[Rfam]
Nucleotides: 471
Base pairs, nucleotide, nucleotide: 001437002436003435004434010431011430012429013428014427015426016425018423019422020421035059036058037057038056039055044049060194061193063191064190065189066188067187068186195199207416208415209414210413211412212411213410214408215407218232219231220230235271236270237269238268239267240266241265242264243261246258247257248256249255275402276401277400279333280332281331284330285329286326287325289324290323291322294321295320296319302313303312304311305310334352335351336350337349338348339347353357373389374388375387376386377385450467451466452465453464454463
Number, partner (000 for none) and nucleotide at each position: 001437u002436a003435g004434a005000a006000u007000a008000a009000u010431g011430u012429a013428g014427a015426u016425a017000a018423g019422g020421g021000a022000a023000g024000u025000c026000g027000g028000c029000a030000a031000a032000a033000u034000a035059g036058a037057u038056c039055c040000g041000u042000a043000a044049c045000u046000u047000c048000g049044g050000g051000a052000u053000a054000a055039g056038g057037a058036u059035u060194g061193g062000c063191u064190c065189u066188a067187a068186g069000g070000g071000u072000u073000g074000g075000g076000g077000g078000a079000u080000u081000c082000g083000g084000u085000g086000a087000a088000g089000g090000u091000g092000g093000u094000g095000c096000c097000g098000u099000g100000u101000g102000g103000c104000u105000a106000g107000c108000u109000a110000g111000g112000c113000u114000u115000g116000g117000g118000g119000u120000c121000c122000u123000c124000u125000c126000g127000g128000g129000g130000a131000a132000c133000c134000u135000g136000c137000g138000c139000c140000c141000g142000g143000c144000a145000g146000g147000c148000u149000a150000c151000g152000c153000c154000u155000a156000c157000c158000c159000a160000c161000c162000c163000c164000a165000g166000c167000u168000c169000u170000c171000c172000c173000c174000a175000c176000u177000a178000a179000c180000a181000a182000c183000c184000a185000u186068c187067u188066u189065a190064g191063a192000a193061c194060u195199g196000g197000u198000a199195c200000g201000g202000a203000c204000a205000a206000g207416g208415g209414g210413a211412a212411u213410c214408u215407g216000a217000c218232u219231g220230u221000c222000u223000a224000a225000u226000u227000a228000a229000a230220a231219c232218a233000u234000a235271g236270c237269a238268u239267u240266g241265c242264g243261a244000u245000g246258g247257u248256c249255a250000g251000a252000a253000a254000g255249u256248g257247a258246u259000g260000u261243u262000g263000a264242c265241g266240c267239a268238a269237u270236g271235u272000g273000a274000u275402u276401u277400c278000u279333g280332c281331c282000c283000a284330g285329u286326g287325c288000u289324c290323u291322g292000a293000a294321u295320g296319u297000c298000a299000a300000a301000g302313u303312g304311a305310a306000g307000a308000a309000a310305u311304u312303c313302a314000a315000c316000c317000a318000a319296g320295c321294g322291c323290g324289g325287g326286u327000a328000a329285a330284c331281g332280g333279c334352g335351g336350g337349a338348g339347u340000a341000a342000c343000u344000a345000u346000g347339a348338c349337u350336c351335u352334c353357u354000u355000a356000a357353g358000g359000u360000a361000g362000c363000c364000a365000a366000a367000u368000g369000c370000c371000u372000c373389g374388u375387c376386a377385u378000c379000u380000a381000a382000u383000u384000a385377g386376u387375g388374a389373c390000g391000c392000g393000c394000a395000u396000g397000a398000a399000u400277g401276g402275a403000u404000u405000a406000a407215c408214g409000a410213g411212a412211u413210u414209c415208c416207c417000a418000c419000u420000g421020u422019c423018c424000c425016u426015a427014u428013c429012u430011a431010c432000u433000a434004u435003c436002u437001a438000g439000c440000g441000a442000a443000a444000c445000c446000a447000c448000a449000g450467c451466c452465a453464a454463g455000g456000g457000a458000a459000c460000g461000g462000g463454c464453u465452u466451g467450g468000c469000a470000a471000a
Notes:
Rfam assigns this 471-nucleotide part of an RNA from Metschnikowia sp. JCM 33374 to the family "Archaeal large subunit ribosomal RNA". Taxonomically the source falls in Metschnikowia (Eukaryota, Opisthokonta, Fungi, Ascomycota). Pairs were carried over by alignment from the consensus structure, which is taken from published work. It scores 1535 bits against the family's covariance model. Its family is annotated with structural constituent of ribosome and ribosome in the Gene Ontology.